[Rfam]
RNA sequence: GGAAUUUCGUCGAAGCGACCUCCUCCCCGCUUCGACGGAUAAGGUCAGCCCUCCUCCUCCCAAUAAGGCUGACCACCCUAACGGCGCCCGCCGGACCUCCUCCCCCGGCGGGCGUUGUUA
Numbered sequence: 001g002g003a004a005u006u007u008c009g010u011c012g013a014a015g016c017g018a019c020c021u022c023c024u025c026c027c028c029g030c031u032u033c034g035a036c037g038g039a040u041a042a043g044g045u046c047a048g049c050c051c052u053c054c055u056c057c058u059c060c061c062a063a064u065a066a067g068g069c070u071g072a073c074c075a076c077c078c079u080a081a082c083g084g085c086g087c088c089c090g091c092c093g094g095a096c097c098u099c100c101u102c103c104c105c106c107g108g109c110g111g112g113c114g115u116u117g118u119u120a
Stems, first nucleotide, its partner, number of pairs: 007038003011034006043074008052065001084115011